[Rfam]
RNA sequence: GUUCAUCCAGUAGGAAUUGAACUUACGAAUUCGCCAAUUAUGAGUUGGGCUCUUUAACCCUUUAGUCAUGGAU
Numbered sequence: 001g002u003u004c005a006u007c008c009a010g011u012a013g014g015a016a017u018u019g020a021a022c023u024u025a026c027g028a029a030u031u032c033g034c035c036a037a038u039u040a041u042g043a044g045u046u047g048g049g050c051u052c053u054u055u056a057a058c059c060c061u062u063u064a065g066u067c068a069u070g071g072a073u
Base pairs, nucleotide, nucleotide: 005073006072007071008070010026011025012024013023014022040069041068042067044066045065046064047063048062049061
Dot-bracket structure: ....((((.(((((.......))))).............(((.((((((...........)))))))))))))